[Rfam]
Nucleotides: 075
Stems, first nucleotide, its partner, number of pairs: 003075001005073004010026005040069003044066006051059001
Number, partner (000 for none) and nucleotide at each position: 001000a002000u003075g004000c005073a006072u007071c008070u009000a010026g011025u012024a013023g014022g015000g016000a017000u018000u019000a020000a021000a022014c023013c024012u025011a026010u027000g028000a029000c030000u031000u032000u033000g034000u035000c036000a037000a038000u039000u040069a041068u042067g043000a044066g045065u046064u047063g048062g049061g050000c051059g052000c053000u054000u055000u056000c057000a058000c059051c060000a061049c062048u063047c064046a065045a066044u067042c068041a069040u070008a071007g072006a073005u074000a075003c